[Rfam]
RNA sequence: UGACGGGGACCCGCACAAGCGGUGGAGCAUGUGGUUUAAUUCGAAGCAACGCGAAGAACCUUACCAAGUCUUGACAUCCCUCUGACCGGCCCGUAACGGGGCCUUCCCUACGGGGCAGAGGAGACAGGUGGUGCAUGGUUGUCGUCAGCUCGUGUCGUGAGAUGUUGGGUUAAGUCCCGCAACGAGCGCAACCCUUAUCCUUAGUAGCCAGCAGGUAGAGCUGGGCACUCUAGGGAGACUGCCAGGGACAACCUGGAGGAAGGUGGGGAUGACGUCAAAUCAUCAUGCCCCUUAUGAUUUGGGCUACACACGUGCUACAAUGGCGUAAACAAAGGGAAGCGAGAGGGCGACCUUUAGCGAAUCUCAAAAAUAACGUCCCAGUUCGGACUGUAGUCUGCAACCCGACUACACGAAGCUGGAAUCGCUAGUAAUCGCGAAUCAGAAUGUCGCGGUGAAUACGUUCCCGGGUCUUGUACACACCGCCCGUCACACCAUGGGAGUUAGUAAUGCCCGAAGCCUGUGACCCAACCGAAAGGAGGGAGCAGUCGAAGGCAGGACUGAUAACUGGGGUGAAGUCGUAACAAGG
Numbered sequence: 001u002g003a004c005g006g007g008g009a010c011c012c013g014c015a016c017a018a019g020c021g022g023u024g025g026a027g028c029a030u031g032u033g034g035u036u037u038a039a040u041u042c043g044a045a046g047c048a049a050c051g052c053g054a055a056g057a058a059c060c061u062u063a064c065c066a067a068g069u070c071u072u073g074a075c076a077u078c079c080c081u082c083u084g085a086c087c088g089g090c091c092c093g094u095a096a097c098g099g100g101g102c103c104u105u106c107c108c109u110a111c112g113g114g115g116c117a118g119a120g121g122a123g124a125c126a127g128g129u130g131g132u133g134c135a136u137g138g139u140u141g142u143c144g145u146c147a148g149c150u151c152g153u154g155u156c157g158u159g160a161g162a163u164g165u166u167g168g169g170u171u172a173a174g175u176c177c178c179g180c181a182a183c184g185a186g187c188g189c190a191a192c193c194c195u196u197a198u199c200c201u202u203a204g205u206a207g208c209c210a211g212c213a214g215g216u217a218g219a220g221c222u223g224g225g226c227a228c229u230c231u232a233g234g235g236a237g238a239c240u241g242c243c244a245g246g247g248a249c250a251a252c253c254u255g256g257a258g259g260a261a262g263g264u265g266g267g268g269a270u271g272a273c274g275u276c277a278a279a280u281c282a283u284c285a286u287g288c289c290c291c292u293u294a295u296g297a298u299u300u301g302g303g304c305u306a307c308a309c310a311c312g313u314g315c316u317a318c319a320a321u322g323g324c325g326u327a328a329a330c331a332a333a334g335g336g337a338a339g340c341g342a343g344a345g346g347g348c349g350a351c352c353u354u355u356a357g358c359g360a361a362u363c364u365c366a367a368a369a370a371u372a373a374c375g376u377c378c379c380a381g382u383u384c385g386g387a388c389u390g391u392a393g394u395c396u397g398c399a400a401c402c403c404g405a406c407u408a409c410a411c412g413a414a415g416c417u418g419g420a421a422u423c424g425c426u427a428g429u430a431a432u433c434g435c436g437a438a439u440c441a442g443a444a445u446g447u448c449g450c451g452g453u454g455a456a457u458a459c460g461u462u463c464c465c466g467g468g469u470c471u472u473g474u475a476c477a478c479a480c481c482g483c484c485c486g487u488c489a490c491a492c493c494a495u496g497g498g499a500g501u502u503a504g505u506a507a508u509g510c511c512c513g514a515a516g517c518c519u520g521u522g523a524c525c526c527a528a529c530c531g532a533a534a535g536g537a538g539g540g541a542g543c544a545g546u547c548g549a550a551g552g553c554a555g556g557a558c559u560g561a562u563a564a565c566u567g568g569g570g571u572g573a574a575g576u577c578g579u580a581a582c583a584a585g586g
Stems, first nucleotide, its partner, number of pairs: 001477002003474003007471007015461002019425005024318001026316008034307002040055004064302007077124002079121005088103005106115003127291002130289004136285002138280003141276001143274002148187006154163003166179004193268004198236007208225002212223003239259002242256005322377005328371001334365003339358002344353003384415001389410007431453007480585001482582001485578002490572004495567003500562006508554004516547001518545004524540003529536002
The family of this 586-nucleotide part of an RNA from Lachnospiraceae bacterium OF09-33XD is "Bacterial small subunit ribosomal RNA". The match comes from Rfam's covariance-model search (1574 bits).